[Rfam]
This 82-nucleotide RNA sequence from Panicum virgatum belongs to the Rfam family "Small nucleolar RNA Z199". The family's consensus secondary structure was predicted with PFOLD. Taxonomically the source falls in Panicum sect. Hiantes (Eukaryota, Embryophyta, Euphyllophyta, Poales). A reference for the family is Chen et al. (2003), "The high diversity of snoRNAs in plants: identification and comparative study of 120 snoRNA genes from Oryza sativa", Nucleic Acids Res. About the family: snoZ199 is a C/D box small nucleolar RNA, which acts as a methylation guide RNA for sites on 18S and 25S rRNA. Rice snoZ199 is reported to be homologous to Arabidopsis snoR13.
RNA sequence: GGGUCAAGUGAUGAGUAUAAACUGCAAUAAUAUCAUGGGAGUAAUACUCUUACGAUACUUCUUUAUUACUAAUUUGUUUACU
Numbered sequence: 001g002g003g004u005c006a007a008g009u010g011a012u013g014a015g016u017a018u019a020a021a022c023u024g025c026a027a028u029a030a031u032a033u034c035a036u037g038g039g040a041g042u043a044a045u046a047c048u049c050u051u052a053c054g055a056u057a058c059u060u061c062u063u064u065a066u067u068a069c070u071a072a073u074u075u076g077u078u079u080a081c082u
Stems, first nucleotide, its partner, number of pairs: 001082002004080001006078001037051005